[Rfam]
The family of this 108-nucleotide RNA sequence from Nanchangia anserum is "TPP riboswitch aptamer (THI element)".

RNA sequence: GGGAGGCGACAGGGGAGCGGCGGGUGCCGCUGAGAGUGCGAAAACGGUUCGCAGACCCUCGAACCUGAUCCGGGUCAUGCCGGCGAAGGGAGUCGAGUCUCUCCUCCU
Numbered sequence: 001g002g003g004a005g006g007c008g009a010c011a012g013g014g015g016a017g018c019g020g021c022g023g024g025u026g027c028c029g030c031u032g033a034g035a036g037u038g039c040g041a042a043a044a045c046g047g048u049u050c051g052c053a054g055a056c057c058c059u060c061g062a063a064c065c066u067g068a069u070c071c072g073g074g075u076c077a078u079g080c081c082g083g084c085g086a087a088g089g090g091a092g093u094c095g096a097g098u099c100u101c102u103c104c105u106c107c108u
Base pairs, nucleotide, nucleotide: 007095008094009093010092011059012058013057014056017030018029019028020027021026037053038052039051040050041049064089065088066087070083071082072081073080
The base pairs follow the family's consensus structure, which is taken from published work. Gene Ontology term of the family: thiamine pyrophosphate binding.